[Rfam]
RNA sequence: UUAAAAGCUUUGAUAAGAAAUAGUAGAUUUAAUAGAGUUUUAAAGAGAAUCCUCGGUUGGUGUAAGAGGAUAAACAAGUUAAGUUGAAUACGUCUUUGAGCAGCACUCUGAAAGAGAUAAUCAAGUAGGCAGUUGUCGUUUUUUGCACACGUUAUAGUGCUAGAGUAUAACCAGUUUUGUUUAAUUGGCGUACUUGAAGAGUUUGUUAUUGUGAGGUAACAAUGAACCAAGGUGGUAACACGUGAGUAAUCUCCCGUCCUUUUA
Numbered sequence: 001u002u003a004a005a006a007g008c009u010u011u012g013a014u015a016a017g018a019a020a021u022a023g024u025a026g027a028u029u030u031a032a033u034a035g036a037g038u039u040u041u042a043a044a045g046a047g048a049a050u051c052c053u054c055g056g057u058u059g060g061u062g063u064a065a066g067a068g069g070a071u072a073a074a075c076a077a078g079u080u081a082a083g084u085u086g087a088a089u090a091c092g093u094c095u096u097u098g099a100g101c102a103g104c105a106c107u108c109u110g111a112a113a114g115a116g117a118u119a120a121u122c123a124a125g126u127a128g129g130c131a132g133u134u135g136u137c138g139u140u141u142u143u144u145g146c147a148c149a150c151g152u153u154a155u156a157g158u159g160c161u162a163g164a165g166u167a168u169a170a171c172c173a174g175u176u177u178u179g180u181u182u183a184a185u186u187g188g189c190g191u192a193c194u195u196g197a198a199g200a201g202u203u204u205g206u207u208a209u210u211g212u213g214a215g216g217u218a219a220c221a222a223u224g225a226a227c228c229a230a231g232g233u234g235g236u237a238a239c240a241c242g243u244g245a246g247u248a249a250u251c252u253c254c255c256g257u258c259c260u261u262u263u264a
Stems, first nucleotide, its partner, number of pairs: 007101002015096004026085006038074003049071006104135002106132002109129001137151003203222006229261004240257003244253001
RNA: T-box leader